[Rfam]
RNA sequence: UGCCUGAUAGUGUAAUGGAAGCACAUGUGACUUUGACUCACAGGGUCCAGGUUCGAACCCUGGUCGGGCAA
Numbered sequence: 001u002g003c004c005u006g007a008u009a010g011u012g013u014a015a016u017g018g019a020a021g022c023a024c025a026u027g028u029g030a031c032u033u034u035g036a037c038u039c040a041c042a043g044g045g046u047c048c049a050g051g052u053u054c055g056a057a058c059c060c061u062g063g064u065c066g067g068g069c070a071a
Stems, first nucleotide, its partner, number of pairs: 001070007010024004026042005047063005

This 71-nucleotide sequence from Pontiella desulfatans belongs to the Rfam family "tRNA". Rfam describes the family as follows. Transfer RNA (tRNA) molecules are approximately 80 nucleotides in length. By type it is a transfer RNA. The organism belongs to Pontiella, within Bacteria.